[Rfam]
RNA: Small nucleolar RNA U2-19
RNA sequence: GUUAAUGAAAAUAGCCAAAUAUGAGCAUCAGAAGACCUUCCAGUCUACUCAAUUCAUGAUCUCUGUAGUUCUGAGA
Numbered sequence: 001g002u003u004a005a006u007g008a009a010a011a012u013a014g015c016c017a018a019a020u021a022u023g024a025g026c027a028u029c030a031g032a033a034g035a036c037c038u039u040c041c042a043g044u045c046u047a048c049u050c051a052a053u054u055c056a057u058g059a060u061c062u063c064u065g066u067a068g069u070u071c072u073g074a075g076a
Base pairs, nucleotide, nucleotide: 025055027053028052033046034045035044036043